Rfam assigns this 77-nucleotide sequence from Xanthomonas oryzae to the family "Xanthomonas sRNA sX9".
The family's consensus secondary structure was predicted with RNAalifold.
It is annotated as a small RNA.
The literature on the family includes a 2011 paper in Nucleic Acids Res by Schmidtke et al., "Genome-wide transcriptome analysis of the plant pathogen Xanthomonas identifies sRNAs with putative virulence functions".
RNA sequence: AUGUACCACGCGGACACUCCGGUUCUGAGCGCGCGGUCCGCACCCACCUGACGAUUGCUCGCUACGUUUUGUUAGCC
Numbered sequence: 001a002u003g004u005a006c007c008a009c010g011c012g013g014a015c016a017c018u019c020c021g022g023u024u025c026u027g028a029g030c031g032c033g034c035g036g037u038c039c040g041c042a043c044c045c046a047c048c049u050g051a052c053g054a055u056u057g058c059u060c061g062c063u064a065c066g067u068u069u070u071g072u073u074a075g076c077c
Base pairs, nucleotide, nucleotide: 002016003015004014006012020036022034023033025031048075049074050073051072052071053070054069